[Rfam]
RNA sequence: AAAAUGUAUAAUUAUAUAAUUAAGAGUCAUGCUAAAUCUUAAACUGAGUUCUACUUGUAAACUUCUGGUUUCUUGUAGUUCCAGUCAAAGAAACAUCUAGCAACUUUUUUGGUUGUGUAAGUCAAAGGGGCUUGAGUCACUGGCGUGUGAGAUAAAUAUACCUGCAUGUUAGUCUUAGGUUCUGAUAGAAAUGACAUGCAAUUGUGCUGCCAUUUUUUACUAUCAGGACUCGACUGGUGUGCGGACACU
Numbered sequence: 001a002a003a004a005u006g007u008a009u010a011a012u013u014a015u016a017u018a019a020u021u022a023a024g025a026g027u028c029a030u031g032c033u034a035a036a037u038c039u040u041a042a043a044c045u046g047a048g049u050u051c052u053a054c055u056u057g058u059a060a061a062c063u064u065c066u067g068g069u070u071u072c073u074u075g076u077a078g079u080u081c082c083a084g085u086c087a088a089a090g091a092a093a094c095a096u097c098u099a100g101c102a103a104c105u106u107u108u109u110u111g112g113u114u115g116u117g118u119a120a121g122u123c124a125a126a127g128g129g130g131c132u133u134g135a136g137u138c139a140c141u142g143g144c145g146u147g148u149g150a151g152a153u154a155a156a157u158a159u160a161c162c163u164g165c166a167u168g169u170u171a172g173u174c175u176u177a178g179g180u181u182c183u184g185a186u187a188g189a190a191a192u193g194a195c196a197u198g199c200a201a202u203u204g205u206g207c208u209g210c211c212a213u214u215u216u217u218u219a220c221u222a223u224c225a226g227g228a229c230u231c232g233a234c235u236g237g238u239g240u241g242c243g244g245a246c247a248c249u
Base pairs, nucleotide, nucleotide: 002148004146005145006144007143012135013134014133020125021124023122025098026097029096030095031094037091038090039089040088043085044084045083046082048081051078052077053076054075057072059071060070061069062068100116101115102114103113104112105111162244163243164242165241166240169237171235172234173233174232181227182226183225184224185223186222187221188220192219193218194217196215198210199209200208
The record is a 249-nucleotide RNA sequence from Camelus dromedarius, which matches "Small nucleolar RNA SNORA53" in Rfam. Rfam describes the family as follows. The snoRNA ACA53 belongs to the H/ACA family of pseudouridylation guide snoRNAs. Rfam 15.1 lists 1,090 matches to the family in 800 species. Taxonomically the source falls in Camelus (Eukaryota, Eumetazoa, Deuterostomia, Chordata). Gene Ontology terms of the family: RNA processing and nucleolus.